This 53-nucleotide RNA sequence from Synechococcales cyanobacterium T60_A2020_003 belongs to the Rfam family "Nitrogen stress-induced RNA 1". Rfam 15.1 lists 962 matches to the family in 163 species. A search with the family's covariance model found it, with a score of 54 bits.
[Rfam]
RNA sequence: UGGUAGAUGCACCCUGAUUCAGAUCCCGGAGAUUAAACUUCGGGAUUUUUUUU
Numbered sequence: 001u002g003g004u005a006g007a008u009g010c011a012c013c014c015u016g017a018u019u020c021a022g023a024u025c026c027c028g029g030a031g032a033u034u035a036a037a038c039u040u041c042g043g044g045a046u047u048u049u050u051u052u053u
Stems, first nucleotide, its partner, number of pairs: 002013003024045008

By type it is a small RNA. The literature on the family includes a 2010 paper in J Mol Biol by Ionescu et al., "Heterocyst-specific transcription of NsiR1, a non-coding RNA encoded in a tandem array of direct repeats in cyanobacteria".